[Rfam]
Notes
The family of this 65-nucleotide sequence from Callosobruchus maculatus is "mir-2 microRNA precursor family". The family's consensus secondary structure was predicted with PFOLD. The literature on the family includes a 2001 paper in Cell by Ambros, "microRNAs: tiny regulators with great potential". The source organism's lineage runs through Eukaryota, Mandibulata, Hexapoda, Bruchinae and Callosobruchus. The match comes from Rfam's covariance-model search (53 bits). Rfam links the family to the GO terms miRNA-mediated post-transcriptional gene silencing and RISC complex.
RNA sequence: UCUCUCAUCAAAGGGUUGUGAAACGGAUGCUAGACUCGUAUCACAGCCAGCUUUGAUGAGCGAUA
Numbered sequence: 001u002c003u004c005u006c007a008u009c010a011a012a013g014g015g016u017u018g019u020g021a022a023a024c025g026g027a028u029g030c031u032a033g034a035c036u037c038g039u040a041u042c043a044c045a046g047c048c049a050g051c052u053u054u055g056a057u058g059a060g061c062g063a064u065a
Base pairs, nucleotide, nucleotide: 005059006058007057008056009055010054011053012052013051014048015047016046017045018044019043020042021041025039